[Rfam]
Rfam assigns this 75-nucleotide sequence from Haploplasma axanthum to the family "Fluoride riboswitch aptamer (crcB RNA motif)". NCBI's taxonomy places the organism under Bacteria, Mycoplasmatota, Mollicutes, Acholeplasmatales, Haploplasma. The family has 289 seed sequences and 2,293 matches in Rfam 15.1. Rfam links the family to the GO terms positive regulation of gene expression and response to fluoride.
RNA sequence: AAUUUAUAUGGGAAUGAUGUUCUCCCUUGGAUUAACCAAAACCGCACGAAAAUUGCUGAUGACGUCUACGCUUAU
Numbered sequence: 001a002a003u004u005u006a007u008a009u010g011g012g013a014a015u016g017a018u019g020u021u022c023u024c025c026c027u028u029g030g031a032u033u034a035a036c037c038a039a040a041a042c043c044g045c046a047c048g049a050a051a052a053u054u055g056c057u058g059a060u061g062a063c064g065u066c067u068a069c070g071c072u073u074a075u
Base pairs, nucleotide, nucleotide: 010026011025012024013023016066017065018064019063020062021061044056045055046054